[Rfam]
RNA sequence: GGGUGUGCCGCAGAAACCCCUGUCGCACAGGUUAUAAUAAAAAGGAUGGUCGGGCCGCCGUCC
Numbered sequence: 001g002g003g004u005g006u007g008c009c010g011c012a013g014a015a016a017c018c019c020c021u022g023u024c025g026c027a028c029a030g031g032u033u034a035u036a037a038u039a040a041a042a043a044g045g046a047u048g049g050u051c052g053g054g055c056c057g058c059c060g061u062c063c
Stems, first nucleotide, its partner, number of pairs: 005028004010023003044063007